[Rfam]
RNA sequence: GGCGCAAACUUGAAGUAGAUUAGUUUAGUAGAGUCAGAUGAUCUUUCUAAUCUACUCUACGUCAAAUUUGGGCCC
Numbered sequence: 001g002g003c004g005c006a007a008a009c010u011u012g013a014a015g016u017a018g019a020u021u022a023g024u025u026u027a028g029u030a031g032a033g034u035c036a037g038a039u040g041a042u043c044u045u046u047c048u049a050a051u052c053u054a055c056u057c058u059a060c061g062u063c064a065a066a067u068u069u070g071g072g073c074c075c
Stems, first nucleotide, its partner, number of pairs: 001074003005070004011064003015060005021054003025050004030045001033042003
RNA: mir-5928 microRNA precursor family